The record is an 89-nucleotide RNA from Branchiostoma floridae, which matches "mir-2060 microRNA precursor family" in Rfam.
The match comes from Rfam's covariance-model search (59 bits).
Rfam 15.1 lists 3,696 matches to the family in 4 species.
Gene Ontology terms of the family: RISC complex and miRNA-mediated post-transcriptional gene silencing.

RNA sequence: GCUUGCCUGUGUGUGGUGUUCAGUACCAAGGACAGGUUUGUUUACUUUGUGUUGGUUGUGUUCAGCACCAGGUACAGGUGUGUUUGGGA
Dot-bracket structure: (((((........(((((((.(((((.(.(.(.((((......))))).).....).))))).)))))))....)))))..........